Glycine riboswitch aptamer: a 111-nucleotide sequence from Lysobacteraceae bacterium NML03-0222.
From the family's description: This family represents the bacterial glycine riboswitch.
RNA sequence: GAACAACACUCUGGAGAGACUGGCCGCCUUUGCGCAGGCCAGCGCCGAAGGGGCAAAAGGCCGUUUCCGGGCGGCCUCCAAACUCUCAGGCAAAAGGACAGAGGGGCAUGA
Numbered sequence: 001g002a003a004c005a006a007c008a009c010u011c012u013g014g015a016g017a018g019a020c021u022g023g024c025c026g027c028c029u030u031u032g033c034g035c036a037g038g039c040c041a042g043c044g045c046c047g048a049a050g051g052g053g054c055a056a057a058a059g060g061c062c063g064u065u066u067c068c069g070g071g072c073g074g075c076c077u078c079c080a081a082a083c084u085c086u087c088a089g090g091c092a093a094a095a096g097g098a099c100a101g102a103g104g105g106g107c108a109u110g111a
Stems, first nucleotide, its partner, number of pairs: 007105001009103005020042006044091003047087002051085003058077008
Overview: The match comes from Rfam's covariance-model search (64 bits).